This 52-nucleotide sequence from Nostocales cyanobacterium HT-58-2 belongs to the Rfam family "Nitrogen stress-induced RNA 1". Rfam 15.1 lists 962 matches to the family in 163 species.
RNA sequence: UGGUAGAUGCACCCUAAUUGCCGCCCUCAGUCUGUGGCUGGGGGUUUUUUCU
Dot-bracket structure: .(((......)))..........(((((((((...)))))))))........
By type it is a small RNA. It scores 46 bits against the family's covariance model. On this family, see Ionescu et al., J Mol Biol 2010: "Heterocyst-specific transcription of NsiR1, a non-coding RNA encoded in a tandem array of direct repeats in cyanobacteria".